[Rfam]
RNA sequence: AAGUAUGGAAGAACGACUAAGAACGCCACAUCGUGUGGCAACAUCGUUCUGACCCACAUCCUGUGGG
Number, nucleotide and partner (000 for none) at each position: 001a000002a000003g000004u000005a000006u000007g000008g000009a000010a000011g049012a048013a047014c046015g045016a044017c000018u000019a000020a000021g000022a000023a000024c000025g039026c038027c037028a036029c035030a000031u000032c000033g000034u000035g029036u028037g027038g026039c025040a000041a000042c000043a000044u016045c015046g014047u013048u012049c011050u000051g000052a000053c067054c066055c065056a064057c063058a000059u000060c000061c000062u000063g057064u056065g055066g054067g053
RNA: Bacillaceae-1 RNA